[Rfam]
RNA sequence: GUGAUGUAUAGAGGAGCGAAUAUUAUGAGUAUCUGCAGUGAGCCGGCCGGCUGAAGCUGCAGGGAAGGGAAUGUUCGCCGAAGCAGGAUGUUUUAGCCGGAAGAUUCUGCUGGGGUUGUAUUGAAGAAAUACAACACUGUCAUUCAAUUAUCCCAUUUUUGAAUGAAGCGCUAUCUCACGC
Numbered sequence: 001g002u003g004a005u006g007u008a009u010a011g012a013g014g015a016g017c018g019a020a021u022a023u024u025a026u027g028a029g030u031a032u033c034u035g036c037a038g039u040g041a042g043c044c045g046g047c048c049g050g051c052u053g054a055a056g057c058u059g060c061a062g063g064g065a066a067g068g069g070a071a072u073g074u075u076c077g078c079c080g081a082a083g084c085a086g087g088a089u090g091u092u093u094u095a096g097c098c099g100g101a102a103g104a105u106u107c108u109g110c111u112g113g114g115g116u117u118g119u120a121u122u123g124a125a126g127a128a129a130u131a132c133a134a135c136a137c138u139g140u141c142a143u144u145c146a147a148u149u150a151u152c153c154c155a156u157u158u159u160u161g162a163a164u165g166a167a168g169c170g171c172u173a174u175c176u177c178a179c180g181c
Base pairs, nucleotide, nucleotide: 006176008174009173010172011171016078017077018076019075020074021073022072023071024070032063033062034061035060036059037058038057039056082111083110084109085108086107087106088105089104091102092101093100112138113137115135116134117133118132119131120130121129122128140166141165142164143163144162145161146160

The record is a 181-nucleotide RNA sequence from Propionispora sp. 2/2-37, which matches "Lysine riboswitch aptamer" in Rfam.
Lineage of the source: Bacteria > Bacillati > Negativicutes > Selenomonadales > Propionispora.
The family's consensus secondary structure is taken from published work.
It scores 112 bits against the family's covariance model.
Its family is annotated with lysine biosynthetic process in the Gene Ontology.